[Rfam]
RNA sequence: UGAUGGUGCAUUGUAGUUGCAUUGCAUUUGUUAUAAAUUAUGCAAUGCAUCUGCAGUGCAAACAUUA
Numbered sequence: 001u002g003a004u005g006g007u008g009c010a011u012u013g014u015a016g017u018u019g020c021a022u023u024g025c026a027u028u029u030g031u032u033a034u035a036a037a038u039u040a041u042g043c044a045a046u047g048c049a050u051c052u053g054c055a056g057u058g059c060a061a062a063c064a065u066u067a
Stems, first nucleotide, its partner, number of pairs: 001067004006063001007060010019048001021046007
RNA: mir-33 microRNA precursor family